[Rfam]
RNA sequence: UUUCCCCUCCCUUACUCCAGUCACUCUGUACCCAGUGGGGUGGUCUGGCAUUGACAGGGGAUACAGCAACGUGGCCCUCUCUCAUCUAGGACUAUUCUCCUAUAUGAGGCUUAUGAGAGCUGACAAU
Dot-bracket structure: ..((((((..(.....((((.((((((.........))))).).))))....)..))))))...........(((.((.((((((.((((........)))).))))))......)).)))......
Numbered sequence: 001u002u003u004c005c006c007c008u009c010c011c012u013u014a015c016u017c018c019a020g021u022c023a024c025u026c027u028g029u030a031c032c033c034a035g036u037g038g039g040g041u042g043g044u045c046u047g048g049c050a051u052u053g054a055c056a057g058g059g060g061a062u063a064c065a066g067c068a069a070c071g072u073g074g075c076c077c078u079c080u081c082u083c084a085u086c087u088a089g090g091a092c093u094a095u096u097c098u099c100c101u102a103u104a105u106g107a108g109g110c111u112u113a114u115g116a117g118a119g120c121u122g123a124c125a126a127u
Stems, first nucleotide, its partner, number of pairs: 003061006011053001017048004022043001023041005073121003077117002080109006087102004